[Rfam]
RNA sequence: UCGCGUAAAGCGCCGAAGGCAGGAGCGGGGGACCCAAGGUAAGCGCCGUUCCCGGCCGUCGAGAGACGGCUGACGACCGGCUGGGGUGGAGCCACGUGCCAAGCGCGCGUGGCCGGGCAACUCACUUGGCCCGAACCCGACAGCUCACCUCGUAGGCGUCGGUGAGGAGAUGC
Numbered sequence: 001u002c003g004c005g006u007a008a009a010g011c012g013c014c015g016a017a018g019g020c021a022g023g024a025g026c027g028g029g030g031g032a033c034c035c036a037a038g039g040u041a042a043g044c045g046c047c048g049u050u051c052c053c054g055g056c057c058g059u060c061g062a063g064a065g066a067c068g069g070c071u072g073a074c075g076a077c078c079g080g081c082u083g084g085g086g087u088g089g090a091g092c093c094a095c096g097u098g099c100c101a102a103g104c105g106c107g108c109g110u111g112g113c114c115g116g117g118c119a120a121c122u123c124a125c126u127u128g129g130c131c132c133g134a135a136c137c138c139g140a141c142a143g144c145u146c147a148c149c150u151c152g153u154a155g156g157c158g159u160c161g162g163u164g165a166g167g168a169g170a171u172g173c
Stems, first nucleotide, its partner, number of pairs: 011158004025153006035083002084138003092112006115132004
RNA: c-di-AMP riboswitch aptamer (ydaO/yuaA leader)
Organism: Streptomyces sp. 150FB